[Rfam]
Background: This 98-nucleotide RNA sequence from Streptomyces sp. TLI_235 belongs to the Rfam family "che1 RNA". The base pairs follow the family's consensus structure, which is taken from published work. NCBI's taxonomy places the organism under Bacteria, Actinomycetota, Kitasatosporales, Streptomycetaceae, Streptomyces.
Nucleotides: 098
Stems, first nucleotide, its partner, number of pairs: 001044008014036006051070008
Number, partner (000 for none) and nucleotide at each position: 001044a002043g003042g004041g005040c006039a007038g008037g009000g010000g011000g012000g013000u014036a015035g016034c017033c018032g019031c020000a021000g022000a023000u024000c025000c026000c027000a028000c029000a030000c031019g032018c033017g034016g035015u036014u037008c038007c039006u040005g041004u042003c043002c044001u045000u046000u047000c048000u049000g050000c051070g052069a053068c054067c055066g056065c057064g058063c059000a060000g061000c062000c063058g064057u065056g066055c067054g068053g069052u070051c071000g072000c073000c074000g075000g076000u077000u078000g079000u080000c081000g082000c083000u084000c085000g086000g087000g088000g089000g090000u091000g092000a093000u094000c095000g096000c097000c098000a